[Rfam]
Shown here is an 85-nucleotide RNA from Gouania willdenowi, a member of the family "mir-301 microRNA precursor family".
A search with the family's covariance model found it, with a score of 82 bits.
RNA sequence: GGAGGCCAGCUGCUUUGACGAUGUUGCACUACUGUACCAUCCAAUAAAGCAGUGCAAUAAUAUUGUCAUAGCAUCUGACCUUUGA
Numbered sequence: 001g002g003a004g005g006c007c008a009g010c011u012g013c014u015u016u017g018a019c020g021a022u023g024u025u026g027c028a029c030u031a032c033u034g035u036a037c038c039a040u041c042c043a044a045u046a047a048a049g050c051a052g053u054g055c056a057a058u059a060a061u062a063u064u065g066u067c068a069u070a071g072c073a074u075c076u077g078a079c080c081u082u083u084g085a
Base pairs, nucleotide, nucleotide: 002082003081004080007077008076009075011073012072013071014070016068017067018066019065023058024057025056026055027054028053029052030051034042